[Rfam]
RNA sequence: CAACUUGGUGUAACACGCCUUACCGAGACUAAACAGCGUGUUUAAAAAACAGUCUCUCAUACCCACGAUGGAGGGUGUCGUGGGAAUACUAAUACCG
Numbered sequence: 001c002a003a004c005u006u007g008g009u010g011u012a013a014c015a016c017g018c019c020u021u022a023c024c025g026a027g028a029c030u031a032a033a034c035a036g037c038g039u040g041u042u043u044a045a046a047a048a049a050c051a052g053u054c055u056c057u058c059a060u061a062c063c064c065a066c067g068a069u070g071g072a073g074g075g076u077g078u079c080g081u082g083g084g085a086a087u088a089c090u091a092a093u094a095c096c097g
Base pairs, nucleotide, nucleotide: 014040015039016038017037018036021035025056026055027054028053029052062084063083064082065081066080067079068078
A member of the RNA family "PhotoRC-II RNA", 97 nucleotides long. It is annotated as a cis-regulatory element. Pairs were carried over by alignment from the consensus structure, which is taken from published work.